Shown here is a 50-nucleotide RNA from Tateyamaria sp. ANG-S1, a member of the family "SAM/SAH riboswitch aptamer".
NCBI's taxonomy places the organism under Bacteria, Pseudomonadati, Alphaproteobacteria, Roseobacteraceae, Tateyamaria.
The base pairs follow the family's consensus structure, which is taken from published work.
The match comes from Rfam's covariance-model search (56 bits).
The literature on the family includes a 2019 paper in Nucleic Acids Res by Weickhmann et al., "The structure of the SAM/SAH-binding riboswitch".
Rfam links the family to the GO terms S-adenosylmethionine metabolic process and regulation of gene expression.
RNA sequence: GACGCGCCACAACGGCUUCCUGACGUGGCGCGGAUAAACCUAAUGGAGCG
Numbered sequence: 001g002a003c004g005c006g007c008c009a010c011a012a013c014g015g016c017u018u019c020c021u022g023a024c025g026u027g028g029c030g031c032g033g034a035u036a037a038a039c040c041u042a043a044u045g046g047a048g049c050g
Base pairs, nucleotide, nucleotide: 004031005030006029007028008027009026010025013022014021015049016048017047019046020045